This 197-nucleotide RNA from Caballeronia concitans belongs to the Rfam family "FMN riboswitch aptamer (RFN element)". Taxonomically the source falls in Caballeronia (Bacteria, Pseudomonadota, Betaproteobacteria, Burkholderiales). Pairs were carried over by alignment from the consensus structure, which is taken from published work. It scores 100 bits against the family's covariance model.
[Rfam]
RNA sequence: ACACGUUCUCGGGGCGGGGUGCGAUUCCCCACCGGCGGUAAUCGUCGCUAGACGUGUCUGACGUUUUCAGCGACGUAGCCCGCGAGCGCUCAUCGAUGUGACCGCAAUGGCAACAUUGCGGUAUCGCAGCGAGCGAGGUCAGCAGACCCGGUUGGAUUCCGGGGCCGACGGUAUAGUCCGGAUGAAAGAGAACAGGA
Dot-bracket structure: ....((((((......(((.......))).[[((((((.........................................))))..((......................................................))...(((((.......)))))..)).(((....]]))).......))))))....